[Rfam]
RNA: Small nucleolar RNA snR191
Organism: Thelonectria olida
RNA sequence: CCCCAAUGCAUUUUGUCAGGAUCCCUAUCUCUUCUCCUCAGGGAGUUUACUAUGGAGGUGGUCUGUUACAUCAUUGGGAGAGCAAUGCCAUUCUCGACUGUCGCAACGUUAUGUUGUCGACUGAUGUGUGCCGUUUUGGUUACCGUCAUGAGAUAGGCUCCGUGUCUGAUGAGUUGAAGCCUAUCUAUGCCACUUUUUGGACAUUGAUUGUAGACUUCUUAGUGAUGACACAAACAUAC
Numbered sequence: 001c002c003c004c005a006a007u008g009c010a011u012u013u014u015g016u017c018a019g020g021a022u023c024c025c026u027a028u029c030u031c032u033u034c035u036c037c038u039c040a041g042g043g044a045g046u047u048u049a050c051u052a053u054g055g056a057g058g059u060g061g062u063c064u065g066u067u068a069c070a071u072c073a074u075u076g077g078g079a080g081a082g083c084a085a086u087g088c089c090a091u092u093c094u095c096g097a098c099u100g101u102c103g104c105a106a107c108g109u110u111a112u113g114u115u116g117u118c119g120a121c122u123g124a125u126g127u128g129u130g131c132c133g134u135u136u137u138g139g140u141u142a143c144c145g146u147c148a149u150g151a152g153a154u155a156g157g158c159u160c161c162g163u164g165u166c167u168g169a170u171g172a173g174u175u176g177a178a179g180c181c182u183a184u185c186u187a188u189g190c191c192a193c194u195u196u197u198u199g200g201a202c203a204u205u206g207a208u209u210g211u212a213g214a215c216u217u218c219u220u221a222g223u224g225a226u227g228a229c230a231c232a233a234a235c236a237u238a239c
Stems, first nucleotide, its partner, number of pairs: 003077005019064005024058003028054001032043003088157002092153002098123001100121004104116004128144001130140004159233001162231002165228002176218004181213004187204003190200003